This 83-nucleotide RNA from Dimorphilus gyrociliatus belongs to the Rfam family "mir-7 microRNA precursor family". From the family's description: This family represents the microRNA (miRNA) precursor mir-7. Pairs were carried over by alignment from the consensus structure, which was predicted with PFOLD. The organism belongs to Dimorphilus, within Eukaryota. On this family, see Lagos-Quintana et al., Science 2001: "Identification of novel genes coding for small expressed RNAs".

Nucleotides: 083
Stems, first nucleotide, its partner, number of pairs: 002082005009076001011074008020064004026059007035050005
Number, partner (000 for none) and nucleotide at each position: 001000u002082g003081g004080c005079g006078g007000c008000u009076a010000u011074c012073g013072g014071u015070g016069u017068g018067g019000a020064a021063g022062a023061c024000u025000a026059g027058u028057g029056a030055u031054u032053u033000u034000g035050u036049u037048g038047u039046c040000g041000g042000u043000g044000u045000c046039g047038a048037c049036a050035a051000a052000g053032g054031a055030a056029u057028c058027a059026c060000u061023g062022u063021c064020u065000u066000c067018u068017c069016a070015u071014a072013u073012u074011g075000a076009u077000u078006c079005c080004g081003c082002c083000u